[Rfam]
RNA sequence: UUUUUAUUGGAUGAUGACUAUCACGUGUCAUAUUUUGAUUGGAUGUCAACUCCAUGAAAGAUGAAAUGUAUUAUUGUUUUCAUUAACCAAUAAGAAUAUAACAAGUAACUGGAAAACAAAC
Numbered sequence: 001u002u003u004u005u006a007u008u009g010g011a012u013g014a015u016g017a018c019u020a021u022c023a024c025g026u027g028u029c030a031u032a033u034u035u036u037g038a039u040u041g042g043a044u045g046u047c048a049a050c051u052c053c054a055u056g057a058a059a060g061a062u063g064a065a066a067u068g069u070a071u072u073a074u075u076g077u078u079u080u081c082a083u084u085a086a087c088c089a090a091u092a093a094g095a096a097u098a099u100a101a102c103a104a105g106u107a108a109c110u111g112g113a114a115a116a117c118a119a120a121c
Base pairs, nucleotide, nucleotide: 021108023106026103030099031098033096034095035094036093038091039090040089